[Rfam]
RNA: MIR1432 microRNA precursor family
RNA sequence: GCUCAGGAGAGAUGACACCGACGUCGGACGGACCGGUCGAUCCGCGCCGUGUCUGUCCGUCCGAAGUGGGUGUCAUCUCGCCUGAAGCA
Numbered sequence: 001g002c003u004c005a006g007g008a009g010a011g012a013u014g015a016c017a018c019c020g021a022c023g024u025c026g027g028a029c030g031g032a033c034c035g036g037u038c039g040a041u042c043c044g045c046g047c048c049g050u051g052u053c054u055g056u057c058c059g060u061c062c063g064a065a066g067u068g069g070g071u072g073u074c075a076u077c078u079c080g081c082c083u084g085a086a087g088c089a
Stems, first nucleotide, its partner, number of pairs: 001088003004084004009079011021067002024064010034049004